[Rfam]
This 280-nucleotide sequence from Nannospalax galili belongs to the Rfam family "Mason-Pfizer monkey virus packaging signal". Rfam describes the family as follows. This family represents a group of sequences that are related to the Mason-Pfizer monkey virus (MPMV) packaging signal. The match comes from Rfam's covariance-model search (155 bits). The base pairs follow the family's consensus structure, which was predicted with PFOLD. Its family is annotated with viral genome packaging in the Gene Ontology.
RNA sequence: UGGCGUCCAAUGUGGCAGCUGGAUACUGGGGGCACAUCGUGAGGAAGACGACAGAGGAAAAGGAGUGCACUCACUAAACCUCAAGGAAUUUGGAGACGCACCGCAGGAGCUUGCCGUAACCGAACCAAAGGUAAGUUGUGCCGUCUGAUCAUGGGGCAAGAUUUGAGCCAGCAUCAGAUUUAUGUCAAGCAAUUGAGAUAGGCUCUAAAGACAUGAUGAGUAAAGGUUAGGACUGCAGAUUUAUUUCAUUUCUUUGAUUUUGUAAAGGACAUUUGUCUCU
Numbered sequence: 001u002g003g004c005g006u007c008c009a010a011u012g013u014g015g016c017a018g019c020u021g022g023a024u025a026c027u028g029g030g031g032g033c034a035c036a037u038c039g040u041g042a043g044g045a046a047g048a049c050g051a052c053a054g055a056g057g058a059a060a061a062g063g064a065g066u067g068c069a070c071u072c073a074c075u076a077a078a079c080c081u082c083a084a085g086g087a088a089u090u091u092g093g094a095g096a097c098g099c100a101c102c103g104c105a106g107g108a109g110c111u112u113g114c115c116g117u118a119a120c121c122g123a124a125c126c127a128a129a130g131g132u133a134a135g136u137u138g139u140g141c142c143g144u145c146u147g148a149u150c151a152u153g154g155g156g157c158a159a160g161a162u163u164u165g166a167g168c169c170a171g172c173a174u175c176a177g178a179u180u181u182a183u184g185u186c187a188a189g190c191a192a193u194u195g196a197g198a199u200a201g202g203c204u205c206u207a208a209a210g211a212c213a214u215g216a217u218g219a220g221u222a223a224a225g226g227u228u229a230g231g232a233c234u235g236c237a238g239a240u241u242u243a244u245u246u247c248a249u250u251u252c253u254u255u256g257a258u259u260u261u262g263u264a265a266a267g268g269a270c271a272u273u274u275g276u277c278u279c280u
Base pairs, nucleotide, nucleotide: 006031007030008029012026013025014024037051038050039049040048089130090129091128092126093125097122098120102116103115106114136159137158138157139156144155145154146153147152164207165206167203168202169201214256215255216254218252219251220250224242225241226240227239228238265280267278268277269276270275